[Rfam]
This 91-nucleotide RNA from Paracoccus alcaliphilus belongs to the Rfam family "Glycine riboswitch aptamer". The base pairs follow the family's consensus structure.
Nucleotides: 091
Base pairs, nucleotide, nucleotide: 006086007085008084010082011081012080013079020035021034022033023032037071038070039069040067041066044065045064046063049059050058
Number, partner (000 for none) and nucleotide at each position: 001000u002000u003000c004000a005000g006086g007085a008084a009000a010082u011081c012080g013079g014000g015000a016000g017000a018000a019000g020035c021034c022033g023032g024000a025000c026000a027000u028000c029000g030000c031000g032023c033022c034021g035020g036000g037071a038070c039069c040067g041066a042000a043000g044065g045064a046063g047000c048000a049059g050058c051000c052000g053000c054000c055000c056000c057000g058050g059049c060000g061000a062000a063046c064045u065044c066041u067040c068000a069039g070038g071037u072000a073000a074000a075000a076000g077000g078000a079013c080012c081011g082010g083000c084008u085007u086006u087000c088000g089000c090000a091000a